[Rfam]
RNA sequence: CCUUCGCUGAUGAGUAACUUACUUGACUUUCGUUCUUCUGAGCUCGCUGAAGCCACGUGUAUUGAUCUGAGGAGG
Numbered sequence: 001c002c003u004u005c006g007c008u009g010a011u012g013a014g015u016a017a018c019u020u021a022c023u024u025g026a027c028u029u030u031c032g033u034u035c036u037u038c039u040g041a042g043c044u045c046g047c048u049g050a051a052g053c054c055a056c057g058u059g060u061a062u063u064g065a066u067c068u069g070a071g072g073a074g075g
Stems, first nucleotide, its partner, number of pairs: 001075003005071001
Dot-bracket structure: (((.(.................................................................).)))
The record is a 75-nucleotide RNA sequence from Otus sunia, which matches "Small nucleolar RNA SNORD59" in Rfam. The family has 24 seed sequences and 1,355 matches in Rfam 15.1. A reference for the family is Galardi et al. (2002), "Purified box C/D snoRNPs are able to reproduce site-specific 2'-O-methylation of target RNA in vitro", Mol Cell Biol. Its Rfam clan is "SNORD59 clan". A search with the family's covariance model found it, with a score of 72 bits.